[Rfam]
RNA sequence: CCCACCAAGCCUCUUCAUGAAUGCUCAAAUUGUGUGGGC
Numbered sequence: 001c002c003c004a005c006c007a008a009g010c011c012u013c014u015u016c017a018u019g020a021a022u023g024c025u026c027a028a029a030u031u032g033u034g035u036g037g038g039c
Base pairs, nucleotide, nucleotide: 001038002037003036004035005034006032008025009024010023
The family of this 39-nucleotide sequence from Colwellia sp. C1TZA3 is "abiF RNA". The organism belongs to Colwellia, within Bacteria. Rfam describes the family as follows. Actinobacteria, Bacteroidetes, Clostridia, Proteobacteria, one Clostridia phage. A search with the family's covariance model found it, with a score of 37 bits. The family's consensus secondary structure is taken from published work.